[Rfam]
RNA sequence: UAAAUACAAUGAUGAUAUGUGAACGUUGUCAACGCAUGUCAGACUUCGGAGGUACUUGUGUGCCAAUGAGAAGAUAAGUUCAAUAUCUGAGUAAUUU
Numbered sequence: 001u002a003a004a005u006a007c008a009a010u011g012a013u014g015a016u017a018u019g020u021g022a023a024c025g026u027u028g029u030c031a032a033c034g035c036a037u038g039u040c041a042g043a044c045u046u047c048g049g050a051g052g053u054a055c056u057u058g059u060g061u062g063c064c065a066a067u068g069a070g071a072a073g074a075u076a077a078g079u080u081c082a083a084u085a086u087c088u089g090a091g092u093a094a095u096u097u
Stems, first nucleotide, its partner, number of pairs: 002096002005093003051064004

Small nucleolar RNA R64/Z200 family: a 97-nucleotide RNA sequence from Asparagus officinalis. The base pairs follow the family's consensus structure, which was predicted with PFOLD. A reference for the family is Galardi et al. (2002), "Purified box C/D snoRNPs are able to reproduce site-specific 2'-O-methylation of target RNA in vitro", Mol Cell Biol. Taxonomically the source falls in Asparagus (Eukaryota, Streptophytina, Liliopsida, Asparagoideae).